This 130-nucleotide sequence from Oryctolagus cuniculus belongs to the Rfam family "Small nucleolar RNA SNORA72". From the family's description: U72 is a member of the H/ACA class of snoRNAs. The literature on the family includes a 1997 paper in Genes Dev by Ganot et al., "The family of box ACA small nucleolar RNAs is defined by an evolutionarily conserved secondary structure and ubiquitous sequence elements essential for RNA accumulation". The family's consensus secondary structure was predicted with PFOLD. Rfam classes the family as an H/ACA-box small nucleolar RNA.
RNA sequence: UUGCAAAUAUGCUCUCUGUUCUGAUUUUGUAAUAAUCAGGACAGGCUGAACGUUUGCUAUAUUGACUAUGUAUGUGUCCCCAAUUCUAGUUCUUUCCCUAUGUCUGUUUUCAUCAAUGCUGGUGUGAAAG
Numbered sequence: 001u002u003g004c005a006a007a008u009a010u011g012c013u014c015u016c017u018g019u020u021c022u023g024a025u026u027u028u029g030u031a032a033u034a035a036u037c038a039g040g041a042c043a044g045g046c047u048g049a050a051c052g053u054u055u056g057c058u059a060u061a062u063u064g065a066c067u068a069u070g071u072a073u074g075u076g077u078c079c080c081c082a083a084u085u086c087u088a089g090u091u092c093u094u095u096c097c098c099u100a101u102g103u104c105u106g107u108u109u110u111c112a113u114c115a116a117u118g119c120u121g122g123u124g125u126g127a128a129a130g
Base pairs, nucleotide, nucleotide: 003057004056005055016044017043018042019041020040021039022038023037024036025035026034065123066122067121068120070119071118081106082105085102087100088099089098